[Rfam]
RNA sequence: AAAAAUCUUACUAUUAUAUUUGUAUCAAAAUUUGUAUAAGUGUUUUAUAACUUAUGCAGCCUCUCUGCUCGAAGGGGUGUAGCAUUGGAAACAAUGGUACUACGAAUUGUAGCAAGGUGCGAAACGACCUUUAACAGUUUUGGUGGUGUCCUGAGUGGGUACUUUGUAGAUGGUAAACAUAGAAAGUAAGCUAUGCCAUUAGUUGCUGGGCAGGACUAGCAACAGCAAGCGAAUUAGCUUGAUAUAAAGUAAGC
Numbered sequence: 001a002a003a004a005a006u007c008u009u010a011c012u013a014u015u016a017u018a019u020u021u022g023u024a025u026c027a028a029a030a031u032u033u034g035u036a037u038a039a040g041u042g043u044u045u046u047a048u049a050a051c052u053u054a055u056g057c058a059g060c061c062u063c064u065c066u067g068c069u070c071g072a073a074g075g076g077g078u079g080u081a082g083c084a085u086u087g088g089a090a091a092c093a094a095u096g097g098u099a100c101u102a103c104g105a106a107u108u109g110u111a112g113c114a115a116g117g118u119g120c121g122a123a124a125c126g127a128c129c130u131u132u133a134a135c136a137g138u139u140u141u142g143g144u145g146g147u148g149u150c151c152u153g154a155g156u157g158g159g160u161a162c163u164u165u166g167u168a169g170a171u172g173g174u175a176a177a178c179a180u181a182g183a184a185a186g187u188a189a190g191c192u193a194u195g196c197c198a199u200u201a202g203u204u205g206c207u208g209g210g211c212a213g214g215a216c217u218a219g220c221a222a223c224a225g226c227a228a229g230c231g232a233a234u235u236a237g238c239u240u241g242a243u244a245u246a247a248a249g250u251a252a253g254c
Stems, first nucleotide, its partner, number of pairs: 007190006033058009060077005079100003083096005115130004121141005148216006160251009169200005178195005202223006226241005

A member of the RNA family "ARRPOF RNA", 254 nucleotides long.